[Rfam]
c-di-GMP-I riboswitch aptamer: a 77-nucleotide RNA from Clostridium sp. CAG:307. From the family's description: GEMM was predicted in a large-scale screen for bacterial structured RNA regulatory elements. It scores 63 bits against the family's covariance model. Pairs were carried over by alignment from the consensus structure, which is taken from published work.
RNA sequence: UAGUGUAAAAGGCAAAGCAGUAGAAAUGCUGUGACGCAAAGCUAUAGGGUCUUUAAAUGAGAUAGCCAGUUGUCAAU
Numbered sequence: 001u002a003g004u005g006u007a008a009a010a011g012g013c014a015a016a017g018c019a020g021u022a023g024a025a026a027u028g029c030u031g032u033g034a035c036g037c038a039a040a041g042c043u044a045u046a047g048g049g050u051c052u053u054u055a056a057a058u059g060a061g062a063u064a065g066c067c068a069g070u071u072g073u074c075a076a077u
Stems, first nucleotide, its partner, number of pairs: 012037002017032006040071004047067002049063003052057001